[Rfam]
RNA sequence: GAAUGAGAUGAUGAAUCAUUUGUUUCCCUAUUGGUUUGAUCGCCGAGAUGAUGGCAAACUAAGUAUUAGCUCUACCUGAUCAUUC
Numbered sequence: 001g002a003a004u005g006a007g008a009u010g011a012u013g014a015a016u017c018a019u020u021u022g023u024u025u026c027c028c029u030a031u032u033g034g035u036u037u038g039a040u041c042g043c044c045g046a047g048a049u050g051a052u053g054g055c056a057a058a059c060u061a062a063g064u065a066u067u068a069g070c071u072c073u074a075c076c077u078g079a080u081c082a083u084u085c
Base pairs, nucleotide, nucleotide: 002084003083004082005081042055043054044053
Notes:
Small nucleolar RNA Z102/R77: an 85-nucleotide RNA from Tetracentron sinense. Its family is annotated with nucleolus and RNA processing in the Gene Ontology. It scores 85 bits against the family's covariance model. A reference for the family is Chen et al. (2003), "The high diversity of snoRNAs in plants: identification and comparative study of 120 snoRNA genes from Oryza sativa", Nucleic Acids Res. Clan: SNORD44 clan. Lineage of the source: Eukaryota > Magnoliopsida > Trochodendrales > Trochodendraceae > Tetracentron. Rfam 15.1 lists 1,346 matches to the family in 224 species. Rfam classes the family as a C/D-box small nucleolar RNA.